[Rfam]
RNA sequence: AAAAACAGAGCUCUCCGAGCUGAGUAACCUAAACAGGAAUGCAUGGUUUCUGGCCGAUAGGGUGCAAUGGGAAACUACUGUGCCUCCCAAUGUGGAAAGGAGGAAAAGGCUAUAUACU
Numbered sequence: 001a002a003a004a005a006c007a008g009a010g011c012u013c014u015c016c017g018a019g020c021u022g023a024g025u026a027a028c029c030u031a032a033a034c035a036g037g038a039a040u041g042c043a044u045g046g047u048u049u050c051u052g053g054c055c056g057a058u059a060g061g062g063u064g065c066a067a068u069g070g071g072a073a074a075c076u077a078c079u080g081u082g083c084c085u086c087c088c089a090a091u092g093u094g095g096a097a098a099g100g101a102g103g104a105a106a107a108g109g110c111u112a113u114a115u116a117c118u
Stems, first nucleotide, its partner, number of pairs: 004111001006109001012103005019054003023051002026048004034041002060085007068077003086095002
Rfam assigns this 118-nucleotide RNA sequence from Pelotomaculum propionicicum to the family "Molybdenum/Tungsten riboswitch aptamer (Moco RNA motif)". The base pairs follow the family's consensus structure, which is taken from published work. On this family, see Regulski et al., Mol Microbiol 2008: "in molybdenum cofactor and tungsten cofactor metabolism". Its family is annotated with molybdenum ion binding, tungstate binding and regulation of gene expression in the Gene Ontology.